The family of this 591-nucleotide part of an RNA from Puccinia triticina is "Eukaryotic large subunit ribosomal RNA". The source organism's lineage runs through Eukaryota, Basidiomycota, Pucciniaceae, Puccinia and Puccinia triticina. Pairs were carried over by alignment from the consensus structure, which is taken from published work. Rfam's curators put it in the seed alignment.
[Rfam]
RNA sequence: GGGAACGGGCUAAAGAAGACCCUGUUGAGCUUGACUCAGUUUGACAUUGUGAAAAGACAUAGAGGGUGUAGAAUAAGUGGGAGCGUAAGCGCCAGUGAAAUACCACUACCUUUAUUGUCUUUUUUACUUAUUCAAUGAAGCAGAGAACAUCCCACUUUUUAGUAUUAAGGUCCUUUUGGGCUGAUCUGGGUUGAAGACAUUGUCAGGUGGGAGUUUGGCUGGGGCGGCACAUCUGUUAAAUAUAACGCAGGUGUCCUAAGGGGACUCAUUGAGAACAGAAAUCUCAAGUAGAACAAAGGGUAAAGUCCCCUUGAUUUUGAUUUCAGUGUGAAUACAAACCAUGAAGUGUGGCCUAUCGAUCCUUUAGUCCUUUAGAAUUUAAGCUAGAGGUGCCAGAAAGUUACCACAGGGAUAACUGGCUUGUGGCAGCCAAGCGUUCAUAGCGACGUUGCUUUUGAUCCUUCGAUGUCGGCUCUUCCUAUCAUACCGAAGCAGAAUUCGGUAAGCGUUGGAUUGUUCACCCACUAAUAGGGAACGUGAGCUGGGUUUAGACCGUCGUGAGACAGGUUAGUUUUACCCUACUGAUGGAGU
Numbered sequence: 001g002g003g004a005a006c007g008g009g010c011u012a013a014a015g016a017a018g019a020c021c022c023u024g025u026u027g028a029g030c031u032u033g034a035c036u037c038a039g040u041u042u043g044a045c046a047u048u049g050u051g052a053a054a055a056g057a058c059a060u061a062g063a064g065g066g067u068g069u070a071g072a073a074u075a076a077g078u079g080g081g082a083g084c085g086u087a088a089g090c091g092c093c094a095g096u097g098a099a100a101u102a103c104c105a106c107u108a109c110c111u112u113u114a115u116u117g118u119c120u121u122u123u124u125u126a127c128u129u130a131u132u133c134a135a136u137g138a139a140g141c142a143g144a145g146a147a148c149a150u151c152c153c154a155c156u157u158u159u160u161a162g163u164a165u166u167a168a169g170g171u172c173c174u175u176u177u178g179g180g181c182u183g184a185u186c187u188g189g190g191u192u193g194a195a196g197a198c199a200u201u202g203u204c205a206g207g208u209g210g211g212a213g214u215u216u217g218g219c220u221g222g223g224g225c226g227g228c229a230c231a232u233c234u235g236u237u238a239a240a241u242a243u244a245a246c247g248c249a250g251g252u253g254u255c256c257u258a259a260g261g262g263g264a265c266u267c268a269u270u271g272a273g274a275a276c277a278g279a280a281a282u283c284u285c286a287a288g289u290a291g292a293a294c295a296a297a298g299g300g301u302a303a304a305g306u307c308c309c310c311u312u313g314a315u316u317u318u319g320a321u322u323u324c325a326g327u328g329u330g331a332a333u334a335c336a337a338a339c340c341a342u343g344a345a346g347u348g349u350g351g352c353c354u355a356u357c358g359a360u361c362c363u364u365u366a367g368u369c370c371u372u373u374a375g376a377a378u379u380u381a382a383g384c385u386a387g388a389g390g391u392g393c394c395a396g397a398a399a400g401u402u403a404c405c406a407c408a409g410g411g412a413u414a415a416c417u418g419g420c421u422u423g424u425g426g427c428a429g430c431c432a433a434g435c436g437u438u439c440a441u442a443g444c445g446a447c448g449u450u451g452c453u454u455u456u457g458a459u460c461c462u463u464c465g466a467u468g469u470c471g472g473c474u475c476u477u478c479c480u481a482u483c484a485u486a487c488c489g490a491a492g493c494a495g496a497a498u499u500c501g502g503u504a505a506g507c508g509u510u511g512g513a514u515u516g517u518u519c520a521c522c523c524a525c526u527a528a529u530a531g532g533g534a535a536c537g538u539g540a541g542c543u544g545g546g547u548u549u550a551g552a553c554c555g556u557c558g559u560g561a562g563a564c565a566g567g568u569u570a571g572u573u574u575u576a577c578c579c580u581a582c583u584g585a586u587g588g589a590g591u
Stems, first nucleotide, its partner, number of pairs: 001586001004583001008580002013575002021410004026406002028402005034214003040207007049127002051124008059115007076107005083090002131195005141188004169182005217230001218228003231252006255351002260310006266292002269287006293301002315338003320333004340348003362389006370383003419459001421457001423456001425453006434444002470545001471543004475537001476534005483508001486503006510524003514520001551569004555564003